[Rfam]
RNA sequence: GAUAACUGGCUUGUGGCGGCCAAGCGUUCAUAGCGACGUCGCUUUUUGAUCCUUCGAUGUCGGCUCUUCCUAACCUAGCGCCGCAGAAGACGCUAAGGGUUGGAUUGUUCACCCACUGACAGGGAACGUGAGCUGGGUUUAGACCGUCGUGAGACAGGUUGGUU
Numbered sequence: 001g002a003u004a005a006c007u008g009g010c011u012u013g014u015g016g017c018g019g020c021c022a023a024g025c026g027u028u029c030a031u032a033g034c035g036a037c038g039u040c041g042c043u044u045u046u047u048g049a050u051c052c053u054u055c056g057a058u059g060u061c062g063g064c065u066c067u068u069c070c071u072a073a074c075c076u077a078g079c080g081c082c083g084c085a086g087a088a089g090a091c092g093c094u095a096a097g098g099g100u101u102g103g104a105u106u107g108u109u110c111a112c113c114c115a116c117u118g119a120c121a122g123g124g125a126a127c128g129u130g131a132g133c134u135g136g137g138u139u140u141a142g143a144c145c146g147u148c149g150u151g152a153g154a155c156a157g158g159u160u161g162g163u164u
Stems, first nucleotide, its partner, number of pairs: 009050001011048001013047001015043006024034002061136001062134004066128001067125005074099002077094004082089001101115003105111001142160004146155003